RNA: Small nucleolar RNA SNORD34
Organism: Chenopodium quinoa
RNA sequence: CAAGGCCUGUGAUGAUCUUUACAAAUAAUUGCCUACAUUGUAUGAUUUUACAAUGAUAAAGAAAUUUCUAGGUCUGAGGCCUUG
Numbered sequence: 001c002a003a004g005g006c007c008u009g010u011g012a013u014g015a016u017c018u019u020u021a022c023a024a025a026u027a028a029u030u031g032c033c034u035a036c037a038u039u040g041u042a043u044g045a046u047u048u049u050a051c052a053a054u055g056a057u058a059a060a061g062a063a064a065u066u067u068c069u070a071g072g073u074c075u076g077a078g079g080c081c082u083u084g
Stems, first nucleotide, its partner, number of pairs: 001084002004081004
Dot-bracket structure: ((.((((......................................................................)))).))